[Rfam]
RNA: MIR7504 microRNA precursor family
RNA sequence: AAUAGGAGAAUGACAAAUUAGAUUUUUUCUCUUGAUUUUCAGAUUUUUCCUCCUCAAAAAAUUCAAAUCGAACUAAAAAUACUAAAAAUUAGGAAGAAAAAUCUGGUUUGUAAUUCUCAUAUU
Number, nucleotide and partner (000 for none) at each position: 001a123002a122003u121004a120005g000006g118007a117008g116009a115010a114011u113012g000013a111014c110015a109016a108017a107018u106019u105020a104021g103022a102023u101024u100025u099026u098027u097028u000029c000030u094031c093032u092033u091034g090035a089036u088037u087038u086039u085040c000041a083042g082043a000044u000045u079046u078047u077048u076049c000050c000051u000052c000053c000054u000055c000056a000057a000058a000059a000060a000061a000062u000063u000064c000065a000066a000067a000068u000069c000070g000071a000072a000073c000074u000075a000076a048077a047078a046079a045080u000081a000082c042083u041084a000085a039086a038087a037088a036089u035090u034091a033092g032093g031094a030095a000096g000097a027098a026099a025100a024101a023102u022103c021104u020105g019106g018107u017108u016109u015110g014111u013112a000113a011114u010115u009116c008117u007118c006119a000120u004121a003122u002123u001